[Rfam]
RNA sequence: CUCUUAUCCAGAGCGGUGGAGGGAAAGGCCCUAUGAUACCGCGGCAACCUUCAAACUUUCGUGUUUGAAAAAGGUGCCAAGUCCUACAAAGCAAUUGGCUUUGAAAGAUGAGGG
Numbered sequence: 001c002u003c004u005u006a007u008c009c010a011g012a013g014c015g016g017u018g019g020a021g022g023g024a025a026a027g028g029c030c031c032u033a034u035g036a037u038a039c040c041g042c043g044g045c046a047a048c049c050u051u052c053a054a055a056c057u058u059u060c061g062u063g064u065u066u067g068a069a070a071a072a073g074g075u076g077c078c079a080a081g082u083c084c085u086a087c088a089a090a091g092c093a094a095u096u097g098g099c100u101u102u103g104a105a106a107g108a109u110g111a112g113g114g
Base pairs, nucleotide, nucleotide: 001114002113003112004111005110006109007108008107013042014041015040016039017038021031022030023029026085027084028083043078044077045076046075048074049073050069051068052067053066054065055064082106087103088102089101090100091099092098
Dot-bracket structure: ((((((((....(((((...(((..[[[)))......)))))((((.((((((((........))))))...))))))...(]]].((((((.....))))))..)))))))))